Shown here is a 97-nucleotide RNA from Apostasia shenzhenica, a member of the family "Small nucleolar RNA Z43".
It is annotated as a C/D-box small nucleolar RNA.
RNA sequence: AGGCGAUGACGAUUUCCAGGAUGAAGGUCUCGUUCAUCGUAAUGGCGAAUUCGCCUUGACGACCAUCCUGAUAUAUCACCACCCAUAUUCUGAGUCU
Numbered sequence: 001a002g003g004c005g006a007u008g009a010c011g012a013u014u015u016c017c018a019g020g021a022u023g024a025a026g027g028u029c030u031c032g033u034u035c036a037u038c039g040u041a042a043u044g045g046c047g048a049a050u051u052c053g054c055c056u057u058g059a060c061g062a063c064c065a066u067c068c069u070g071a072u073a074u075a076u077c078a079c080c081a082c083c084c085a086u087a088u089u090c091u092g093a094g095u096c097u
Base pairs, nucleotide, nucleotide: 001097002096003095004094047057048056
Dot-bracket structure: ((((..........................................((.......))....................................))))
Record summary: The literature on the family includes a 2003 paper in Nucleic Acids Res by Chen et al., "The high diversity of snoRNAs in plants: identification and comparative study of 120 snoRNA genes from Oryza sativa". Lineage of the source: Eukaryota > Streptophytina > Orchidaceae > Apostasioideae > Apostasia.